About this RNA
The family of this 82-nucleotide sequence from Mesorhizobium hungaricum is "chrB-a RNA". Lineage of the source: Bacteria > Pseudomonadati > Alphaproteobacteria > Phyllobacteriaceae > Mesorhizobium. Pairs were carried over by alignment from the consensus structure, which is taken from published work. It is annotated as a cis-regulatory element. It scores 82 bits against the family's covariance model. The family has 163 seed sequences and 347 matches in Rfam 15.1.

RNA sequence: AUUAUGGGGAUUGCGAUCUCCCCACGAGGCUACGGCCCAAGAAUCGCGUCCAGAAACCCGGUAAACGGAAGGACGCGUCAUG
Numbered sequence: 001a002u003u004a005u006g007g008g009g010a011u012u013g014c015g016a017u018c019u020c021c022c023c024a025c026g027a028g029g030c031u032a033c034g035g036c037c038c039a040a041g042a043a044u045c046g047c048g049u050c051c052a053g054a055a056a057c058c059c060g061g062u063a064a065a066c067g068g069a070a071g072g073a074c075g076c077g078u079c080a081u082g
Base pairs, nucleotide, nucleotide: 005024006023007022008021009020010019046076047075048074049073050072051071